This 107-nucleotide RNA sequence from Corynebacterium ulcerans belongs to the Rfam family "L31-Corynebacteriaceae ribosomal protein leader". The organism belongs to Corynebacterium, within Bacteria. Pairs were carried over by alignment from the consensus structure, which is taken from published work. The family is grouped with related families in Rfam's "Ribosomal Protein L31 Leader clan". By type it is a cis-regulatory leader.
[Rfam]
RNA sequence: ACUCAGGCACGAUCCCUGCCGGGCGGGCUGUCAUUGCAACAGGCGAUGAUGAUGCCUCUGGCCAGUGAAGAUGUAGGGAACCGACCUGAAGUUUCAAUCCUGAGGGA
Numbered sequence: 001a002c003u004c005a006g007g008c009a010c011g012a013u014c015c016c017u018g019c020c021g022g023g024c025g026g027g028c029u030g031u032c033a034u035u036g037c038a039a040c041a042g043g044c045g046a047u048g049a050u051g052a053u054g055c056c057u058c059u060g061g062c063c064a065g066u067g068a069a070g071a072u073g074u075a076g077g078g079a080a081c082c083g084a085c086c087u088g089a090a091g092u093u094u095c096a097a098u099c100c101u102g103a104g105g106g107a
Base pairs, nucleotide, nucleotide: 001092002091003090004088005087006086007085013079014078015077016076017075018074019073022063023062